Rfam assigns this 99-nucleotide RNA from Peribacillus asahii to the family "Purine riboswitch aptamer". The match comes from Rfam's covariance-model search (71 bits). A reference for the family is Reining et al. (2013), "Three-state mechanism couples ligand and temperature sensing in riboswitches", Nature. The family has 133 seed sequences and 4,097 matches in Rfam 15.1.
RNA sequence: ACUGAACAAAUUAAUAUUAUCUGUAUAACCUCAGAAUAUGGCUUGAGGGUCUCUACCAGGAACCUUAAAAUCCUGAUUACAGAAAAUGGAUAAUUCAUU
Numbered sequence: 001a002c003u004g005a006a007c008a009a010a011u012u013a014a015u016a017u018u019a020u021c022u023g024u025a026u027a028a029c030c031u032c033a034g035a036a037u038a039u040g041g042c043u044u045g046a047g048g049g050u051c052u053c054u055a056c057c058a059g060g061a062a063c064c065u066u067a068a069a070a071u072c073c074u075g076a077u078u079a080c081a082g083a084a085a086a087u088g089g090a091u092a093a094u095u096c097a098u099u
Base pairs, nucleotide, nucleotide: 018085020083021082022081023080024079025078029048030047031046032045033044034042057075058074059073060072061071